[Rfam]
Rfam assigns this 121-nucleotide sequence from Carnegiea gigantea to the family "Plastid-psbA-1 3UTR RNA".
Plastid psbA-1 is a non-coding RNA (ncRNA) present in plastids. It was identified in inverted repeat sequences in the 3 prime untranslate region (3UTR) of photosystem II quinone-binding protein (psbA).
It scores 66 bits against the family's covariance model.
RNA sequence: UUGAAGCUCCAUCUACAAAUGGGUAAAUUUUCAUUUGUAGUUCAGUGUAUACGAGUUAUGGAAAGUAAGGGGCCAAUACCUGUUUCUUGACAGACCAGGAAAUUGGUUAUUUUAGUCUUUU
Numbered sequence: 001u002u003g004a005a006g007c008u009c010c011a012u013c014u015a016c017a018a019a020u021g022g023g024u025a026a027a028u029u030u031u032c033a034u035u036u037g038u039a040g041u042u043c044a045g046u047g048u049a050u051a052c053g054a055g056u057u058a059u060g061g062a063a064a065g066u067a068a069g070g071g072g073c074c075a076a077u078a079c080c081u082g083u084u085u086c087u088u089g090a091c092a093g094a095c096c097a098g099g100a101a102a103u104u105g106g107u108u109a110u111u112u113u114a115g116u117c118u119u120u121u
Stems, first nucleotide, its partner, number of pairs: 008023005067121007075113002077109002080105001082103001084101005
For this family Rfam cites "Retrograde signaling in plants: A critical review focusing on the GUN pathway and beyond" (Richter et al., Plant Commun, 2023).